[Rfam]
RNA sequence: UGAGUAAAGUUAACAGCCGCGUAAACAGUGCCGAAAGGCCGUUUAUGAGGAAAGUCCGGGCUGCGCAGGGCAGGAUAACGGAUAACGUCCGCCGGAGGCGACUCCAGGAAAAGUGCAACAGAGAUAUACCGCCACGGCAUUGCCGGGGUAAGGGUGGAAAGGCGAGGUAAGAGCUCACCAGUCGCAUAGGUAACUAUGCGACUCUGUAAACUCUAUCCGCAGCAACACCGCAGAGGGACACACAGGGCUUGCCCGGCCCGUCCCGAGAAGGUGGCUAGAGGUGUGUGGUAACAUGCAUCCCAGAUAGAUGGCUGUUCCAAUGACAGAACCCGGCUUACUCUUUGCUCACUCU
Dot-bracket structure: (((((((((..(((((((.(((((((.(..........).)))))))....[[[.[[[[[((((...[[[[.(((((.((((.....)))).(((((....)))).)((...(((((...........(((((.((((...)))).)))..)).......((.(((.......))).)).(((((((((....)))))))))..)))..)))))))))))))...((((......((..((...(((((.]]]]))))))).)).....))))......((((((((....))))))))..........)))))))............]]]]]]]]...)))))))))....
Numbered sequence: 001u002g003a004g005u006a007a008a009g010u011u012a013a014c015a016g017c018c019g020c021g022u023a024a025a026c027a028g029u030g031c032c033g034a035a036a037g038g039c040c041g042u043u044u045a046u047g048a049g050g051a052a053a054g055u056c057c058g059g060g061c062u063g064c065g066c067a068g069g070g071c072a073g074g075a076u077a078a079c080g081g082a083u084a085a086c087g088u089c090c091g092c093c094g095g096a097g098g099c100g101a102c103u104c105c106a107g108g109a110a111a112a113g114u115g116c117a118a119c120a121g122a123g124a125u126a127u128a129c130c131g132c133c134a135c136g137g138c139a140u141u142g143c144c145g146g147g148g149u150a151a152g153g154g155u156g157g158a159a160a161g162g163c164g165a166g167g168u169a170a171g172a173g174c175u176c177a178c179c180a181g182u183c184g185c186a187u188a189g190g191u192a193a194c195u196a197u198g199c200g201a202c203u204c205u206g207u208a209a210a211c212u213c214u215a216u217c218c219g220c221a222g223c224a225a226c227a228c229c230g231c232a233g234a235g236g237g238a239c240a241c242a243c244a245g246g247g248c249u250u251g252c253c254c255g256g257c258c259c260g261u262c263c264c265g266a267g268a269a270g271g272u273g274g275c276u277a278g279a280g281g282u283g284u285g286u287g288g289u290a291a292c293a294u295g296c297a298u299c300c301c302a303g304a305u306a307g308a309u310g311g312c313u314g315u316u317c318c319a320a321u322g323a324c325a326g327a328a329c330c331c332g333g334c335u336u337a338c339u340c341u342u343u344g345c346u347c348a349c350u351c352u
Stems, first nucleotide, its partner, number of pairs: 001348009012316007020047007028039001052336003056333005061222004068254004073218005079091004093107001094105004108213002113211002115207003129153002131149003135145004161179002164176003181202009226273004236264002240261002245259005280299008